This 105-nucleotide sequence from Lysobacter sp. Root96 belongs to the Rfam family "TPP riboswitch aptamer (THI element)". The literature on the family includes a 2008 paper in J Am Chem Soc by Thore et al., "Structural basis of thiamine pyrophosphate analogues binding to the eukaryotic riboswitch".
RNA sequence: GCACUGAAGCGGGGGUACCGCGGCGGUUCCAGGCCGGCGGUUGAGACAGUCCCUUCGAACCUGAUGCGGUUGAGACCGCCGUAGGGAAGCUUCGCCGGCCGCGCU
Numbered sequence: 001g002c003a004c005u006g007a008a009g010c011g012g013g014g015g016u017a018c019c020g021c022g023g024c025g026g027u028u029c030c031a032g033g034c035c036g037g038c039g040g041u042u043g044a045g046a047c048a049g050u051c052c053c054u055u056c057g058a059a060c061c062u063g064a065u066g067c068g069g070u071u072g073a074g075a076c077c078g079c080c081g082u083a084g085g086g087a088a089g090c091u092u093c094g095c096c097g098g099c100c101g102c103g104c105u
Stems, first nucleotide, its partner, number of pairs: 006093005011054004016048001017041005060085004066079004